[Rfam]
The record is a 61-nucleotide RNA sequence from Pristionchus pacificus, which matches "mir-8364 microRNA precursor family" in Rfam. Rfam links the family to the GO terms RISC complex and miRNA-mediated post-transcriptional gene silencing.
RNA sequence: UCUUCAUUUCAAGUGCUCUCUCGUCGGUCCGAAAGGCGAGAGAGCGUGUGAAAUGAAGAGA
Numbered sequence: 001u002c003u004u005c006a007u008u009u010c011a012a013g014u015g016c017u018c019u020c021u022c023g024u025c026g027g028u029c030c031g032a033a034a035g036g037c038g039a040g041a042g043a044g045c046g047u048g049u050g051a052a053a054u055g056a057a058g059a060g061a
Base pairs, nucleotide, nucleotide: 001059002058003057004056005055006054007053010050013047014046015045016044017043019041020040021039022038
A search with the family's covariance model found it, with a score of 74 bits. Rfam 15.1 lists 3,320 matches to the family in 2 species.